[Rfam]
RNA sequence: AGGCAUGUUUCCAAGGGCUGUGGCUGCCUGUAGCCAUGGGAUCUCCAACUGCAUGCCAGAGUAAUGGAGAGACUUUGACAGCUCAGGUCAGCACAGUGCCUGCAGCUGCCACUCAUCUUUCCUAUAUAU
Numbered sequence: 001a002g003g004c005a006u007g008u009u010u011c012c013a014a015g016g017g018c019u020g021u022g023g024c025u026g027c028c029u030g031u032a033g034c035c036a037u038g039g040g041a042u043c044u045c046c047a048a049c050u051g052c053a054u055g056c057c058a059g060a061g062u063a064a065u066g067g068a069g070a071g072a073c074u075u076u077g078a079c080a081g082c083u084c085a086g087g088u089c090a091g092c093a094c095a096g097u098g099c100c101u102g103c104a105g106c107u108g109c110c111a112c113u114c115a116u117c118u119u120u121c122c123u124a125u126a127u128a129u
Stems, first nucleotide, its partner, number of pairs: 011039002016035007066122006081109002084102004
Shown here is a 129-nucleotide sequence from Mus musculus, a member of the family "Small nucleolar RNA SNORA44". The family has 27 seed sequences and 1,056 matches in Rfam 15.1. ACA44 is a member of the H/ACA class of snoRNA that guide the sites of modification of uridines to pseudouridines. The family's consensus secondary structure was predicted with PFOLD. Rfam classes the family as an H/ACA-box small nucleolar RNA. Lineage of the source: Eukaryota > Teleostomi > Euteleostomi > Boreoeutheria > Mus.